[Rfam]
7SK RNA: a 331-nucleotide RNA from Camelus dromedarius. A search with the family's covariance model found it, with a score of 249 bits.
RNA sequence: GCAUGUGAGGGCUAUCUGACUGUGCUUUCUGUCACCCCAUUGAUCGCCAGGGUUGAUCUGGCUGAUCUGGCUGGCUAGGCGGGGGUCCCCCCUCCACAACUGCAAAUGCAUCCCUCCCUAACCUGCGCACUCGAUGGAAGAGGAAGUCCUUCCCCAAUAGAGGAGGACUGUUCUUCAGUCAAGGUCAAGGGUAUACGAGGAGCUGUGCUCCAUGCUAGAACAUCCAAACAAGCUCUCAAGGUCCAUUUGUAGGAGAACGUAGGGUAGUCAAGCUUCCGAGACUCCAGACACAUCUAAAUGAGGUGUUGCGCGUGGCAGUCUGCCUUUCUUC
Numbered sequence: 001g002c003a004u005g006u007g008a009g010g011g012c013u014a015u016c017u018g019a020c021u022g023u024g025c026u027u028u029c030u031g032u033c034a035c036c037c038c039a040u041u042g043a044u045c046g047c048c049a050g051g052g053u054u055g056a057u058c059u060g061g062c063u064g065a066u067c068u069g070g071c072u073g074g075c076u077a078g079g080c081g082g083g084g085g086u087c088c089c090c091c092c093u094c095c096a097c098a099a100c101u102g103c104a105a106a107u108g109c110a111u112c113c114c115u116c117c118c119u120a121a122c123c124u125g126c127g128c129a130c131u132c133g134a135u136g137g138a139a140g141a142g143g144a145a146g147u148c149c150u151u152c153c154c155c156a157a158u159a160g161a162g163g164a165g166g167a168c169u170g171u172u173c174u175u176c177a178g179u180c181a182a183g184g185u186c187a188a189g190g191g192u193a194u195a196c197g198a199g200g201a202g203c204u205g206u207g208c209u210c211c212a213u214g215c216u217a218g219a220a221c222a223u224c225c226a227a228a229c230a231a232g233c234u235c236u237c238a239a240g241g242u243c244c245a246u247u248u249g250u251a252g253g254a255g256a257a258c259g260u261a262g263g264g265u266a267g268u269c270a271a272g273c274u275u276c277c278g279a280g281a282c283u284c285c286a287g288a289c290a291c292a293u294c295u296a297a298a299u300g301a302g303g304u305g306u307u308g309c310g311c312g313u314g315g316c317a318g319u320c321u322g323c324c325u326u327u328c329u330u331c
Stems, first nucleotide, its partner, number of pairs: 001103003005097003009093003018090001024087001026085008035074002037070003042067004046062003111166002113163004118133001120131001135157001137155001142153003202273003208267002210264002213261003223254003228250005297330002300326005305319005
NCBI's taxonomy places the organism under Eukaryota, Deuterostomia, Euteleostomi, Amniota, Camelus. Rfam 15.1 lists 49,373 matches to the family in 668 species.